[Rfam]
RNA sequence: AUAUCUAGCGGGCACACCAGAAGAAAUUCUGCGUCGCAAAGCUACGGGUCUAAGGGUUGAAAUGAAACCUAUGAUCGCCGAGCUGCAUCU
Numbered sequence: 001a002u003a004u005c006u007a008g009c010g011g012g013c014a015c016a017c018c019a020g021a022a023g024a025a026a027u028u029c030u031g032c033g034u035c036g037c038a039a040a041g042c043u044a045c046g047g048g049u050c051u052a053a054g055g056g057u058u059g060a061a062a063u064g065a066a067a068c069c070u071a072u073g074a075u076c077g078c079c080g081a082g083c084u085g086c087a088u089c090u
Base pairs, nucleotide, nucleotide: 012037013036018031019030020029021028022027040084041083042082043081045080046079047078048075049074050073055069056068057067058066

A member of the RNA family "c-di-GMP-I riboswitch aptamer" from Paenalicyclobacillus mengziensis, 90 nucleotides long. Pairs were carried over by alignment from the consensus structure, which is taken from published work. GEMM was predicted in a large-scale screen for bacterial structured RNA regulatory elements. Genes associated with GEMM are involved in a diverse array of functions, including chemotaxis regulation, signal transduction, secretion and chitin. The source organism's lineage runs through Bacteria, Bacillati, Bacilli, Caryophanales and Paenalicyclobacillus.